[Rfam]
RNA sequence: UUGGUUAGAAAUCAACUCAGGUCAUUACUGCAACGGUAAUGACACCAAGGCCCGCGACGCCGGCAGCGGGCACCAACGGCAGAAAAAUUCUGCCCGACCUCACCACGGGGUCUCAGGGAUAUAACAGUCAAC
Number, nucleotide and partner (000 for none) at each position: 001u000002u000003g000004g000005u000006u000007a000008g000009a000010a000011a000012u000013c000014a000015a000016c000017u000018c000019a000020g000021g043022u042023c041024a040025u039026u038027a037028c036029u035030g000031c000032a000033a000034c000035g029036g028037u027038a026039a025040u024041g023042a022043c021044a000045c000046c000047a000048a000049g000050g071051c070052c069053c068054g067055c066056g000057a000058c000059g000060c000061c000062g000063g000064c000065a000066g055067c054068g053069g052070g051071c050072a000073c000074c000075a000076a000077c000078g094079g093080c092081a091082g090083a089084a000085a000086a000087a000088u000089u083090c082091u081092g080093c079094c078095c000096g112097a111098c110099c109100u108101c107102a000103c000104c000105a000106c000107g101108g100109g099110g098111u097112c096113u000114c000115a000116g000117g000118g000119a000120u000121a000122u000123a000124a000125c000126a000127g000128u000129c000130a000131a000132c000